[Rfam]
RNA sequence: UACAAUAGUUAGGAAAACUCAAGGGUGGUCAGCAUUACCCCGGAAUGAAAGGGGGUGGUGCUUAUGAUGACAUAUUACAAACGUUAAUGCUUAUGAUAGCAUUUGCAAGUUUGGUGUUGUCAAUCAUAUCUUUUAAAGACAAAAAAUAACCCACCCUUGAGCAUAGCAGCGCGAUGAGGUGAGUUAUUUUCCAAAAACGCUGAUCCCACUUGAAGGGAACCUGGUUAUUGUGUGAUUGUUUGGUGUUCUAGCACCGAAC
Numbered sequence: 001u002a003c004a005a006u007a008g009u010u011a012g013g014a015a016a017a018c019u020c021a022a023g024g025g026u027g028g029u030c031a032g033c034a035u036u037a038c039c040c041c042g043g044a045a046u047g048a049a050a051g052g053g054g055g056u057g058g059u060g061c062u063u064a065u066g067a068u069g070a071c072a073u074a075u076u077a078c079a080a081a082c083g084u085u086a087a088u089g090c091u092u093a094u095g096a097u098a099g100c101a102u103u104u105g106c107a108a109g110u111u112u113g114g115u116g117u118u119g120u121c122a123a124u125c126a127u128a129u130c131u132u133u134u135a136a137a138g139a140c141a142a143a144a145a146a147u148a149a150c151c152c153a154c155c156c157u158u159g160a161g162c163a164u165a166g167c168a169g170c171g172c173g174a175u176g177a178g179g180u181g182a183g184u185u186a187u188u189u190u191c192c193a194a195a196a197a198c199g200c201u202g203a204u205c206c207c208a209c210u211u212g213a214a215g216g217g218a219a220c221c222u223g224g225u226u227a228u229u230g231u232g233u234g235a236u237u238g239u240u241u242g243g244u245g246u247u248c249u250a251g252c253a254c255c256g257a258a259c
Base pairs, nucleotide, nucleotide: 001232002231003230004229005228007226008225009224011222016201018161019160020159021158022157023156024155025154027151028150029149035057038055039054040053041052066130067129068128069127072124082095083094107120171191173189204218205217206216207215238259239258240257241256242255243254244253245252246251

The record is a 259-nucleotide sequence from Metabacillus sediminilitoris, which matches "BsrG" in Rfam. bsrE, bsrG and bsrH pair through intermolecular interactions with antisense sRNAs. They form type I toxin/antitoxin system that includes an mRNA encoding for a short, toxic peptide (bsrE, bsrG and bsrH) and an antitoxin that is comprised of an antisense RNA. bsrG encodes a 39-amino-acid toxin, and the 180 nucleotide antisense sRNA called SR4 acts as the antitoxin (they overlap by 123 nucleotides). SR4 interaction with the 3'UTR of bsrG RNA promotes bsrG degradation and inhibits its translation. A search with the family's covariance model found it, with a score of 85 bits. The source organism's lineage runs through Bacteria, Bacillota, Bacilli, Caryophanales and Metabacillus. Pairs were carried over by alignment from the consensus structure, which was predicted with WAR.